[Rfam]
RNA sequence: CUUGAUCGAGCCCAGCCACAACGGCCGGUCGGCCUCACGGCGUUGGCCGUAGGUCGCCAGCAGCGCGUGCGCCUC
Numbered sequence: 001c002u003u004g005a006u007c008g009a010g011c012c013c014a015g016c017c018a019c020a021a022c023g024g025c026c027g028g029u030c031g032g033c034c035u036c037a038c039g040g041c042g043u044u045g046g047c048c049g050u051a052g053g054u055c056g057c058c059a060g061c062a063g064c065g066c067g068u069g070c071g072c073c074u075c
Stems, first nucleotide, its partner, number of pairs: 015025003032070002038065002043060003047056001049054001
Dot-bracket structure: ..............(((.....)))......((....((...(((.(.(....).).)))...))...)).....